[Rfam]
RNA sequence: GGGGUGGUAUCCUGCCGGGAGCCGCACCUUUGGCCAUGCAGCAAAACAGCAUAUGGGGAAACCGCUUGGAGCCGGGAUGGACCGAGACGGGGGU
Numbered sequence: 001g002g003g004g005u006g007g008u009a010u011c012c013u014g015c016c017g018g019g020a021g022c023c024g025c026a027c028c029u030u031u032g033g034c035c036a037u038g039c040a041g042c043a044a045a046a047c048a049g050c051a052u053a054u055g056g057g058g059a060a061a062c063c064g065c066u067u068g069g070a071g072c073c074g075g076g077a078u079g080g081a082c083c084g085a086g087a088c089g090g091g092g093g094u
Base pairs, nucleotide, nucleotide: 001029002028003027004025005024006023007022008021010020011019062090063089064088065086066085067084068083069082072080073079
Rfam assigns this 94-nucleotide RNA from Desulfofundulus thermobenzoicus to the family "pan motif". The family's consensus secondary structure is taken from published work. The organism belongs to Desulfofundulus, within Bacteria. A search with the family's covariance model found it, with a score of 44 bits.